This 64-nucleotide RNA sequence from Shewanella sediminis belongs to the Rfam family "COG3860 RNA".
RNA sequence: GGGUCGGCAGUUCACCCAGGCAUCGCCACUGCACUUUUUAUUGAGCGCAGCGCUAAACCUGCUG
Numbered sequence: 001g002g003g004u005c006g007g008c009a010g011u012u013c014a015c016c017c018a019g020g021c022a023u024c025g026c027c028a029c030u031g032c033a034c035u036u037u038u039u040a041u042u043g044a045g046c047g048c049a050g051c052g053c054u055a056a057a058c059c060u061g062c063u064g
Base pairs, nucleotide, nucleotide: 001017002016003015004014029050030049031048032047